[Rfam]
RNA sequence: GCCGAGUUGGGUAACGUCAGUUUGUGACUCAAGUGAGGGCAUUAUGGUGGUGGGAUGAUACUGUGGCUUUCCUGGGUUGGGCCUUGAUGGCAAAAUGCUGGCCUGCCCGCUCCAAGUUGAGAGCUGACCCACGGGACCUGAGCGAAGGCUUGGGCCUCUUGAGUCCUAAAGUGGAUGGCACUGCGUCAGGCUGGUUUCACAGAACAGCGAAAACCUCCCUCUCCAGACAGUGGAGGGAUAACAGGCUGCUGCAAUCACGGCCCUGUAUGCCCAGUGAGCCCAGUUUACUUUGACCACCACCGUU
Numbered sequence: 001g002c003c004g005a006g007u008u009g010g011g012u013a014a015c016g017u018c019a020g021u022u023u024g025u026g027a028c029u030c031a032a033g034u035g036a037g038g039g040c041a042u043u044a045u046g047g048u049g050g051u052g053g054g055a056u057g058a059u060a061c062u063g064u065g066g067c068u069u070u071c072c073u074g075g076g077u078u079g080g081g082c083c084u085u086g087a088u089g090g091c092a093a094a095a096u097g098c099u100g101g102c103c104u105g106c107c108c109g110c111u112c113c114a115a116g117u118u119g120a121g122a123g124c125u126g127a128c129c130c131a132c133g134g135g136a137c138c139u140g141a142g143c144g145a146a147g148g149c150u151u152g153g154g155c156c157u158c159u160u161g162a163g164u165c166c167u168a169a170a171g172u173g174g175a176u177g178g179c180a181c182u183g184c185g186u187c188a189g190g191c192u193g194g195u196u197u198c199a200c201a202g203a204a205c206a207g208c209g210a211a212a213a214c215c216u217c218c219c220u221c222u223c224c225a226g227a228c229a230g231u232g233g234a235g236g237g238a239u240a241a242c243a244g245g246c247u248g249c250u251g252c253a254a255u256c257a258c259g260g261c262c263c264u265g266u267a268u269g270c271c272c273a274g275u276g277a278g279c280c281c282a283g284u285u286u287a288c289u290u291u292g293a294c295c296a297c298c299a300c301c302g303u304u
Base pairs, nucleotide, nucleotide: 001040002039003038004023005022006021007020008019009018010017028037029036030035044303045302046301047300048299049298050297051296052295053294057290059287060286061283062282063281065279068277069276071274074272075271076270077269079263080262081261082260083259085257086256088254090252093250099248100247101246102245103244104243105242107237108236110235111234112233113232114231116228117227118226121223122222123221126165127164128163130161131160133158134157135156137154138153139152140151141150142149143148166171173218174217175216177214182211184209185208186207191202192201193200